[Rfam]
RNA sequence: CGUCGCUGUCGGUUCCCGUGGACCGACAGACCGCGAGCACUCAGCUCCGGACCGAAGAACACAAGCGGCGGCCUCCCCCCGAAGCAGAGGCCGGCCUAAUAAGAAAUUUCGGAAGUACGCGCACCUCCGGCCGAGGUGCUGAACCCGC
Numbered sequence: 001c002g003u004c005g006c007u008g009u010c011g012g013u014u015c016c017c018g019u020g021g022a023c024c025g026a027c028a029g030a031c032c033g034c035g036a037g038c039a040c041u042c043a044g045c046u047c048c049g050g051a052c053c054g055a056a057g058a059a060c061a062c063a064a065g066c067g068g069c070g071g072c073c074u075c076c077c078c079c080c081g082a083a084g085c086a087g088a089g090g091c092c093g094g095c096c097u098a099a100u101a102a103g104a105a106a107u108u109u110c111g112g113a114a115g116u117a118c119g120c121g122c123a124c125c126u127c128c129g130g131c132c133g134a135g136g137u138g139c140u141g142a143a144c145c146c147g148c
Base pairs, nucleotide, nucleotide: 006029007028008027009026010025011024012023013022014021015020031050032049033048035047036046037045038044120141121139122138123137124136125135126134127133